[Rfam]
Fluoride riboswitch aptamer (crcB RNA motif): a 67-nucleotide sequence from Neoroseomonas alkaliterrae. Taxonomically the source falls in Neoroseomonas (Bacteria, Pseudomonadota, Acetobacterales, Acetobacteraceae). Gene Ontology terms of the family: response to fluoride and positive regulation of gene expression. The family's consensus secondary structure is taken from published work.

RNA sequence: CUAUCCGAUGGGGAUGGAGUCCCCCGACACCCGCCCCCGCGACGGGGCUGAUGACUCCUGCGGGACC
Numbered sequence: 001c002u003a004u005c006c007g008a009u010g011g012g013g014a015u016g017g018a019g020u021c022c023c024c025c026g027a028c029a030c031c032c033g034c035c036c037c038c039g040c041g042a043c044g045g046g047g048c049u050g051a052u053g054a055c056u057c058c059u060g061c062g063g064g065a066c067c
Stems, first nucleotide, its partner, number of pairs: 010025004016058006033048004